[Rfam]
RNA sequence: AUUUAGGUCGGUGCAAAAGUGAUUGCGGUUUUUGCCAUUACUUUCAAUGGCAAAAACCGCAAUCACUUUUGCACUGACCUGAAU
Numbered sequence: 001a002u003u004u005a006g007g008u009c010g011g012u013g014c015a016a017a018a019g020u021g022a023u024u025g026c027g028g029u030u031u032u033u034g035c036c037a038u039u040a041c042u043u044u045c046a047a048u049g050g051c052a053a054a055a056a057c058c059g060c061a062a063u064c065a066c067u068u069u070u071g072c073a074c075u076g077a078c079c080u081g082a083a084u
Stems, first nucleotide, its partner, number of pairs: 001084039
RNA: mir-548 microRNA precursor family
Organism: Saimiri boliviensis